[Rfam]
RNA sequence: UAAGCUGAUAGCCCAAGGAGGGAAAGCCGCCAUAUGCGGCAAGUACCUCUUUAAUUGGGCUGUCAAAACC
Numbered sequence: 001u002a003a004g005c006u007g008a009u010a011g012c013c014c015a016a017g018g019a020g021g022g023a024a025a026g027c028c029g030c031c032a033u034a035u036g037c038g039g040c041a042a043g044u045a046c047c048u049c050u051u052u053a054a055u056u057g058g059g060c061u062g063u064c065a066a067a068a069c070c
Base pairs, nucleotide, nucleotide: 006065007064008063009062010061011060012059013058014057015056016055017050018049019048020047021046026040027039028038029037030036

Rfam assigns this 70-nucleotide RNA sequence to the family "Hepatitis C virus stem-loop VII". The family's consensus secondary structure was predicted with RNAfold. Rfam's curators put it in the seed alignment.